[Rfam]
RNA sequence: GUGCUCACAAGAACACUUAUCCUGCCACAUGGCUGAGAUGAGUUUUGGGAAAAUGUGAGCUAGAGCACAAGUAUUGCUUUGGGAGUGUCACAUUCCAGGCCACAUGAGACACUACAGUUUUCAAUACAACA
Numbered sequence: 001g002u003g004c005u006c007a008c009a010a011g012a013a014c015a016c017u018u019a020u021c022c023u024g025c026c027a028c029a030u031g032g033c034u035g036a037g038a039u040g041a042g043u044u045u046u047g048g049g050a051a052a053a054u055g056u057g058a059g060c061u062a063g064a065g066c067a068c069a070a071g072u073a074u075u076g077c078u079u080u081g082g083g084a085g086u087g088u089c090a091c092a093u094u095c096c097a098g099g100c101c102a103c104a105u106g107a108g109a110c111a112c113u114a115c116a117g118u119u120u121u122c123a124a125u126a127c128a129a130c131a
Stems, first nucleotide, its partner, number of pairs: 003060006012044003018040004025032002071127001073125004079117003084113006091106001093102001
RNA: Small Cajal body specific RNA 23